[Rfam]
RNA: mir-252 microRNA precursor family
Organism: Penaeus vannamei
RNA sequence: GCCCGCUCCUAAGUACUAGUGCCGCAGGAGAGAGGUUUUCACACUCCUGCUGCUCAAGUGCUUAUCAACGGGA
Numbered sequence: 001g002c003c004c005g006c007u008c009c010u011a012a013g014u015a016c017u018a019g020u021g022c023c024g025c026a027g028g029a030g031a032g033a034g035g036u037u038u039u040c041a042c043a044c045u046c047c048u049g050c051u052g053c054u055c056a057a058g059u060g061c062u063u064a065u066c067a068a069c070g071g072g073a
Stems, first nucleotide, its partner, number of pairs: 002072004007067001010064008019055001024050007